[Rfam]
RNA sequence: UUAGGGCAAUGUAUGAACAACAGGAAUGUUAUGUACAGUAUAUUAUAAAAUUCUAUAUGUAACGUUUUUGUUGUCUUAAAUUGCUCUGC
Numbered sequence: 001u002u003a004g005g006g007c008a009a010u011g012u013a014u015g016a017a018c019a020a021c022a023g024g025a026a027u028g029u030u031a032u033g034u035a036c037a038g039u040a041u042a043u044u045a046u047a048a049a050a051u052u053c054u055a056u057a058u059g060u061a062a063c064g065u066u067u068u069u070g071u072u073g074u075c076u077u078a079a080a081u082u083g084c085u086c087u088g089c
Stems, first nucleotide, its partner, number of pairs: 002088009017074019037054002

The family of this 89-nucleotide RNA sequence from Heliconius melpomene is "mir-3327 microRNA precursor family". Gene Ontology terms of the family: RISC complex and miRNA-mediated post-transcriptional gene silencing. It is one of the family's seed sequences. The organism belongs to Heliconius, within Eukaryota. Pairs were carried over by alignment from the consensus structure, which was predicted with RNAalifold.